RNA sequence: GCUGGGAAGAGGAAGAAAGCGAGAGUCCAGGAGCAGUGGGGAUAGGAACACAGAGGAAAGUAUAAAUUCUCUAUUUUCUCUUCUAGCACUGGAUGAGGAGAUUUGAUUUUGUGUUUUCCCAGUGCCUCCCAUUCCUAUUGUUCUUCGAUUUUCCUCCCAUUCCCUUUAGCU
Numbered sequence: 001g002c003u004g005g006g007a008a009g010a011g012g013a014a015g016a017a018a019g020c021g022a023g024a025g026u027c028c029a030g031g032a033g034c035a036g037u038g039g040g041g042a043u044a045g046g047a048a049c050a051c052a053g054a055g056g057a058a059a060g061u062a063u064a065a066a067u068u069c070u071c072u073a074u075u076u077u078c079u080c081u082u083c084u085a086g087c088a089c090u091g092g093a094u095g096a097g098g099a100g101a102u103u104u105g106a107u108u109u110u111g112u113g114u115u116u117u118c119c120c121a122g123u124g125c126c127u128c129c130c131a132u133u134c135c136u137a138u139u140g141u142u143c144u145u146c147g148a149u150u151u152u153c154c155u156c157c158c159a160u161u162c163c164c165u166u167u168a169g170c171u
Stems, first nucleotide, its partner, number of pairs: 009162003015156002021153003026148002029145007037137007045129003049124003053120001055119007
Dot-bracket structure: ........(((...((....(((..((.(((((((.(((((((.(((.(((.(.(((((((...................................................)))))))).)))..))).))))))).))))))).))..))).))...))).........
RNA: MIR2118 microRNA precursor family